[Rfam]
RNA sequence: UUCCGCGUGGGUACUGGCUGUUUGUGUCUCUUUCGUUGCCAUCCAGCUGUCAUUAACCACGCUAGACGAUGUGUGAGCGGCGCUUAAUUACCGUGUGAAUUCCAACGUGAUUGGUCGCUCGGAGGAGGUGCUGGCACAUUU
Numbered sequence: 001u002u003c004c005g006c007g008u009g010g011g012u013a014c015u016g017g018c019u020g021u022u023u024g025u026g027u028c029u030c031u032u033u034c035g036u037u038g039c040c041a042u043c044c045a046g047c048u049g050u051c052a053u054u055a056a057c058c059a060c061g062c063u064a065g066a067c068g069a070u071g072u073g074u075g076a077g078c079g080g081c082g083c084u085u086a087a088u089u090a091c092c093g094u095g096u097g098a099a100u101u102c103c104a105a106c107g108u109g110a111u112u113g114g115u116c117g118c119u120c121g122g123a124g125g126a127g128g129u130g131c132u133g134g135c136a137c138a139u140u141u
Stems, first nucleotide, its partner, number of pairs: 005062005011057002013050002016048005023041002026039002078133007088124002091122003095118004102114003
Rfam assigns this 141-nucleotide sequence from Caenorhabditis japonica to the family "Caenorhabditis snoRNA ceN51".
The organism belongs to Caenorhabditis, within Eukaryota.
A search with the family's covariance model found it, with a score of 106 bits.
Gene Ontology terms of the family: RNA processing and nucleolus.
Pairs were carried over by alignment from the consensus structure, which was predicted with RNAalifold.
It is annotated as an H/ACA-box small nucleolar RNA.